[Rfam]
RNA sequence: AUUUUACCCCAGGAGCGGGACAUAGUGGUUUUUAACUCUGGUUAUAAGCUCUAAUGCUCUAUCACCGGGUAAAAAUCCACAAUGGCCCAUCUCUUGGAC
Numbered sequence: 001a002u003u004u005u006a007c008c009c010c011a012g013g014a015g016c017g018g019g020a021c022a023u024a025g026u027g028g029u030u031u032u033u034a035a036c037u038c039u040g041g042u043u044a045u046a047a048g049c050u051c052u053a054a055u056g057c058u059c060u061a062u063c064a065c066c067g068g069g070u071a072a073a074a075a076u077c078c079a080c081a082a083u084g085g086c087c088c089a090u091c092u093c094u095u096g097g098a099c
Base pairs, nucleotide, nucleotide: 017088018087019086021084022083025080026079027078028077030075031074032073033072035070036069037068039067041065042064044062045061046060